[Rfam]
RNA sequence: ACUGGAGGAUCAAGAAGGUGGAGUCUGAUGAAGCAAGACUUUGCUGAUACACUCCUCCUAGAGAACCGGGUCGGAGAGAGCAGCCCAAAUUGGAGAGCCAUGGGGCUGACUGUACUACCCAACAUUC
Numbered sequence: 001a002c003u004g005g006a007g008g009a010u011c012a013a014g015a016a017g018g019u020g021g022a023g024u025c026u027g028a029u030g031a032a033g034c035a036a037g038a039c040u041u042u043g044c045u046g047a048u049a050c051a052c053u054c055c056u057c058c059u060a061g062a063g064a065a066c067c068g069g070g071u072c073g074g075a076g077a078g079a080g081c082a083g084c085c086c087a088a089a090u091u092g093g094a095g096a097g098c099c100a101u102g103g104g105g106c107u108g109a110c111u112g113u114a115c116u117a118c119c120c121a122a123c124a125u126u127c
Stems, first nucleotide, its partner, number of pairs: 002061002004058006017045003021041006068120004079111002081108006091100003
RNA: Small Cajal body specific RNA 4
Organism: Heterocephalus glaber